[Rfam]
RNA sequence: UAGUUAAAACGUUCGUAGUCCAUGUAAGUGCCAAUCUGUGCGAAUCGGGUAGUCCAACUUUAGUCUUAAGGGGAAACUUUUAGGACUAGAGGACUGGAGGAAACUCCAGUCAGGGCUGCUCCUUGCCGGUUAAAUGCGUCUUCGGACGCAUCGGGGUUUGUACAGAGAGGUGCGAUCCACAACUGUGAGUAAAUCAGCGUGUUCAAAGCAGGCUUUGGGAGGAUUUAUCCUCCCUUGUGCUUGUAUGCUAAAGCAUGGAAUUGUAACAUACUGACGUCAAGUCACAAUCGUGGAAAAGGAAACAGACGGAGGGCACAAGUAUUCCGGUGACCAGGGGUGAAAUCCGUACUCCCGGAAGACUACCAGAUGCGAAAGCGGUUUUGCCCACGGCGUUUCCGUUGAUCAAGAACGAGAGUCAAGGGAUCGAAGAUGAUUAGAUACCGUCGUAGUCUUGACCGUAAACUAUACUGCCAAGAGUUUGGGGAUAUGACACCAUUAUUGAUCUCCUCAGAAUCUAAGGGAAACCGAAAGUUUUCGAGUUCUGGGGGAAGUAUGGUCGCAAGGCUGAAACUUAAAGGAAU
Numbered sequence: 001u002a003g004u005u006a007a008a009a010c011g012u013u014c015g016u017a018g019u020c021c022a023u024g025u026a027a028g029u030g031c032c033a034a035u036c037u038g039u040g041c042g043a044a045u046c047g048g049g050u051a052g053u054c055c056a057a058c059u060u061u062a063g064u065c066u067u068a069a070g071g072g073g074a075a076a077c078u079u080u081u082a083g084g085a086c087u088a089g090a091g092g093a094c095u096g097g098a099g100g101a102a103a104c105u106c107c108a109g110u111c112a113g114g115g116c117u118g119c120u121c122c123u124u125g126c127c128g129g130u131u132a133a134a135u136g137c138g139u140c141u142u143c144g145g146a147c148g149c150a151u152c153g154g155g156g157u158u159u160g161u162a163c164a165g166a167g168a169g170g171u172g173c174g175a176u177c178c179a180c181a182a183c184u185g186u187g188a189g190u191a192a193a194u195c196a197g198c199g200u201g202u203u204c205a206a207a208g209c210a211g212g213c214u215u216u217g218g219g220a221g222g223a224u225u226u227a228u229c230c231u232c233c234c235u236u237g238u239g240c241u242u243g244u245a246u247g248c249u250a251a252a253g254c255a256u257g258g259a260a261u262u263g264u265a266a267c268a269u270a271c272u273g274a275c276g277u278c279a280a281g282u283c284a285c286a287a288u289c290g291u292g293g294a295a296a297a298g299g300a301a302a303c304a305g306a307c308g309g310a311g312g313g314c315a316c317a318a319g320u321a322u323u324c325c326g327g328u329g330a331c332c333a334g335g336g337g338u339g340a341a342a343u344c345c346g347u348a349c350u351c352c353c354g355g356a357a358g359a360c361u362a363c364c365a366g367a368u369g370c371g372a373a374a375g376c377g378g379u380u381u382u383g384c385c386c387a388c389g390g391c392g393u394u395u396c397c398g399u400u401g402a403u404c405a406a407g408a409a410c411g412a413g414a415g416u417c418a419a420g421g422g423a424u425c426g427a428a429g430a431u432g433a434u435u436a437g438a439u440a441c442c443g444u445c446g447u448a449g450u451c452u453u454g455a456c457c458g459u460a461a462a463c464u465a466u467a468c469u470g471c472c473a474a475g476a477g478u479u480u481g482g483g484g485a486u487a488u489g490a491c492a493c494c495a496u497u498a499u500u501g502a503u504c505u506c507c508u509c510a511g512a513a514u515c516u517a518a519g520g521g522a523a524a525c526c527g528a529a530a531g532u533u534u535u536c537g538a539g540u541u542c543u544g545g546g547g548g549a550a551g552u553a554u555g556g557u558c559g560c561a562a563g564g565c566u567g568a569a570a571c572u573u574a575a576a577g578g579a580a581u
Base pairs, nucleotide, nucleotide: 001544002543003542009541011410012409013408014407018403019402020401298397299396300395301394305391307389308388311386312385313384314383315382317380318361319360322357323356324355325354326353327352329351330350334345335344336343369376370375415456416455417454418453419452420451425449429445430444431443432442467540468539469538470533472531475515476514479511480510481509482508483507484506485505519526520525546573547572548571555566556565557564558563
RNA: Eukaryotic small subunit ribosomal RNA, nucleotides 594 to 1174
Organism: Stachyamoeba sp. ATCC 50324